The record is a 150-nucleotide RNA sequence from Carlito syrichta, which matches "U12 minor spliceosomal RNA" in Rfam. It is annotated as a spliceosomal small nuclear RNA.

RNA sequence: AUGCCUUAAACUUAUGAGUAAGGAAAAUAAUGACUUGGGGUGACGUCCAGAUGCUUAUUACUAAUGUGAGAUGAAUUUUUGAACCAGUAAAGGUGGCCCCUAAGGUGACCCACCUACUUUGCAGGAUGCCUGGGAAUCGUGAUCUGCCAG
Numbered sequence: 001a002u003g004c005c006u007u008a009a010a011c012u013u014a015u016g017a018g019u020a021a022g023g024a025a026a027a028u029a030a031u032g033a034c035u036u037g038g039g040g041u042g043a044c045g046u047c048c049a050g051a052u053g054c055u056u057a058u059u060a061c062u063a064a065u066g067u068g069a070g071a072u073g074a075a076u077u078u079u080u081g082a083a084c085c086a087g088u089a090a091a092g093g094u095g096g097c098c099c100c101u102a103a104g105g106u107g108a109c110c111c112a113c114c115u116a117c118u119u120u121g122c123a124g125g126a127u128g129c130c131u132g133g134g135a136a137u138c139g140u141g142a143u144c145u146g147c148c149a150g
Stems, first nucleotide, its partner, number of pairs: 004023005033052001035050005054070005084150001087147002091145004096140002100134002103131005109125002113121001